This 127-nucleotide RNA from Pseudoclavibacter endophyticus belongs to the Rfam family "FMN riboswitch aptamer (RFN element)". Taxonomically the source falls in Pseudoclavibacter (Bacteria, Bacillati, Actinomycetota, Micrococcales). The RFN element is a highly conserved domain that is found frequently in the 5'-untranslated regions of prokaryotic mRNAs that encode for flavin mononucleotide (FMN) biosynthesis and transport proteins. A search with the family's covariance model found it, with a score of 92 bits.

[Rfam]
RNA sequence: UCACGCGCUCCGGGGUCGGUGAGAAUCCGAACCGGCGGUUACAGUCCGCGAGCCUCGGCCGAAAGGCCGGGGCCGAUCCGGUGAGAUCCCGGGACCGACGGUCAAAGUCCGGAUGGGAGGCGCGCAG
Numbered sequence: 001u002c003a004c005g006c007g008c009u010c011c012g013g014g015g016u017c018g019g020u021g022a023g024a025a026u027c028c029g030a031a032c033c034g035g036c037g038g039u040u041a042c043a044g045u046c047c048g049c050g051a052g053c054c055u056c057g058g059c060c061g062a063a064a065g066g067c068c069g070g071g072g073c074c075g076a077u078c079c080g081g082u083g084a085g086a087u088c089c090c091g092g093g094a095c096c097g098a099c100g101g102u103c104a105a106a107g108u109c110c111g112g113a114u115g116g117g118a119g120g121c122g123c124g125c126a127g
Base pairs, nucleotide, nucleotide: 004124005123006122007121008120010119017029018028019027031108032107033097034096035049036048037047038046044095045094052073053072054071077093078092079091080090081089099111100110101109